RNA sequence: CGACCCGUGUUCCCCCCGUCGCCGCCAGCCGCAGGCGCUCGGGGUUUUAGCGGUGUCGCAGAGCAGCGGCGGCUCCUUCUUCACCCGGCGGAGCAGAGGUGGCUUCGGGGCUCCGCCGGAUUUUGGGGGGUCGCACAAAU
Numbered sequence: 001c002g003a004c005c006c007g008u009g010u011u012c013c014c015c016c017c018g019u020c021g022c023c024g025c026c027a028g029c030c031g032c033a034g035g036c037g038c039u040c041g042g043g044g045u046u047u048u049a050g051c052g053g054u055g056u057c058g059c060a061g062a063g064c065a066g067c068g069g070c071g072g073c074u075c076c077u078u079c080u081u082c083a084c085c086c087g088g089c090g091g092a093g094c095a096g097a098g099g100u101g102g103c104u105u106c107g108g109g110g111c112u113c114c115g116c117c118g119g120a121u122u123u124u125g126g127g128g129g130g131u132c133g134c135a136c137a138a139a140u
Stems, first nucleotide, its partner, number of pairs: 001058004005053004014044005020037004071132006085119010098106002
Rfam assigns this 140-nucleotide RNA sequence from Anthoscopus minutus to the family "Small nucleolar RNA SNORA79". The organism belongs to Anthoscopus, within Eukaryota. Rfam classes the family as an H/ACA-box small nucleolar RNA. ACA65 (SNORA79) is a member of the H/ACA class of snoRNAs that guide the sites of modification of uridines to pseudouridines. This snoRNA was identified by computational screening and its expression in mouse experimentally verified by Northern blot and primer extension analysis. The family has 25 seed sequences and 944 matches in Rfam 15.1. The literature on the family includes a 2006 paper in RNA by Schattner et al., "A computational screen for mammalian pseudouridylation guide H/ACA RNAs".